This 119-nucleotide sequence from Thermanaerosceptrum fracticalcis belongs to the Rfam family "Molybdenum/Tungsten riboswitch aptamer (Moco RNA motif)". Lineage of the source: Bacteria > Bacillati > Clostridia > Eubacteriales > Thermanaerosceptrum. Pairs were carried over by alignment from the consensus structure, which is taken from published work. It scores 75 bits against the family's covariance model.
RNA sequence: UAAACUACAUAUCUCCGAGCCUGGAUUCCUGGGGACGGGGUCUAUGGAGUACAGGCCGACAGGGUGUCACUGGAAACGGUGGUGCCUCCCGUGUGGAAAGGAGAACGCAAGGCUGAUCC
Numbered sequence: 001u002a003a004a005c006u007a008c009a010u011a012u013c014u015c016c017g018a019g020c021c022u023g024g025a026u027u028c029c030u031g032g033g034g035a036c037g038g039g040g041u042c043u044a045u046g047g048a049g050u051a052c053a054g055g056c057c058g059a060c061a062g063g064g065u066g067u068c069a070c071u072g073g074a075a076a077c078g079g080u081g082g083u084g085c086c087u088c089c090c091g092u093g094u095g096g097a098a099a100g101g102a103g104a105a106c107g108c109a110a111g112g113c114u115g116a117u118c119c
Stems, first nucleotide, its partner, number of pairs: 006110001012104005019056005025050005033043004062087011088096002
Record summary:
For this family Rfam cites "in molybdenum cofactor and tungsten cofactor metabolism" (Regulski et al., Mol Microbiol, 2008).